[Rfam]
RNA sequence: GCUGGAGGACUAAGAAGGCUGAGUCUGAUGAAGCAAGACUCGGCUGAUACACUCCUCCUAGAAAAAAGGGUUGGAGAGAGCAGCUCUCCUUGGAGAAGAUCACGGGGGCUGACUGUACUACCCGACAUUC
Numbered sequence: 001g002c003u004g005g006a007g008g009a010c011u012a013a014g015a016a017g018g019c020u021g022a023g024u025c026u027g028a029u030g031a032a033g034c035a036a037g038a039c040u041c042g043g044c045u046g047a048u049a050c051a052c053u054c055c056u057c058c059u060a061g062a063a064a065a066a067a068g069g070g071u072u073g074g075a076g077a078g079a080g081c082a083g084c085u086c087u088c089c090u091u092g093g094a095g096a097a098g099a100u101c102a103c104g105g106g107g108g109c110u111g112a113c114u115g116u117a118c119u120a121c122c123c124g125a126c127a128u129u130c
Stems, first nucleotide, its partner, number of pairs: 002061002004058006017045003021041006068123004079114002081111007091102003
Dot-bracket structure: .((((((((.......(((.((((((.........)))))).))).......)))))).))......((((.......(((((((((...(((......)))..))))))).)).....)))).......
RNA: Small Cajal body specific RNA 4
Organism: Oryctolagus cuniculus